[Rfam]
RNA sequence: GCUAGAUUUAGUGCCCUGCCUUGUCUUUUUCAAAGUUGUCUCCUUUUUGUAUGUAAGGAUAUUACUGUUUUACUUGGUGGCAGAAACUU
Number, nucleotide and partner (000 for none) at each position: 001g000002c000003u000004a000005g000006a000007u000008u000009u000010a000011g000012u082013g081014c080015c079016c000017u000018g078019c077020c076021u000022u000023g073024u072025c000026u000027u000028u000029u000030u000031c000032a000033a000034a066035g065036u064037u000038g000039u061040c000041u059042c058043c057044u056045u055046u000047u000048u000049g000050u000051a000052u000053g000054u000055a045056a044057g043058g042059a041060u000061a039062u000063u000064a036065c035066u034067g000068u000069u000070u000071u000072a024073c023074u000075u000076g020077g019078u018079g015080g014081c013082a012083g000084a000085a000086a000087c000088u000089u000